RNA sequence: UGAUAGCGUUGAAGCGUGAGGUUGCUGUAGAAAUUCUACAGGUUUUCCGUGGAGCGAAUGUCAAGUUAGAAAACUGGCGACAA
Numbered sequence: 001u002g003a004u005a006g007c008g009u010u011g012a013a014g015c016g017u018g019a020g021g022u023u024g025c026u027g028u029a030g031a032a033a034u035u036c037u038a039c040a041g042g043u044u045u046u047c048c049g050u051g052g053a054g055c056g057a058a059u060g061u062c063a064a065g066u067u068a069g070a071a072a073a074c075u076g077g078c079g080a081c082a083a
Stems, first nucleotide, its partner, number of pairs: 014050003018047004025041005059082004065078004
RNA: S10-Clostridia ribosomal protein leader